[Rfam]
RNA: mir-184 microRNA precursor family
Organism: Nephila pilipes
RNA sequence: GUUUCCACGUUUCCUUAUCAUUCGACUGUCCAGACUGUGAAUGAGAACUGGACGGAGAACUGAUAAGGGCUUGUGGCAAC
Numbered sequence: 001g002u003u004u005c006c007a008c009g010u011u012u013c014c015u016u017a018u019c020a021u022u023c024g025a026c027u028g029u030c031c032a033g034a035c036u037g038u039g040a041a042u043g044a045g046a047a048c049u050g051g052a053c054g055g056a057g058a059a060c061u062g063a064u065a066a067g068g069g070c071u072u073g074u075g076g077c078a079a080c
Base pairs, nucleotide, nucleotide: 012069013068014067015066016065017064018063019062020061021059022058023057026055027054030051031050